[Rfam]
Shown here is a 44-nucleotide RNA sequence from Microbacterium maritypicum, a member of the family "Guanidine-II riboswitch aptamer (mini-ykkC)".
RNA sequence: CGGAGGACGACCUCCGACGGAGAGACAGACCGGGGACGACCCCG
Numbered sequence: 001c002g003g004a005g006g007a008c009g010a011c012c013u014c015c016g017a018c019g020g021a022g023a024g025a026c027a028g029a030c031c032g033g034g035g036a037c038g039a040c041c042c043c044g
Stems, first nucleotide, its partner, number of pairs: 001016006031044005
Background:
Gene Ontology term of the family: regulation of gene expression.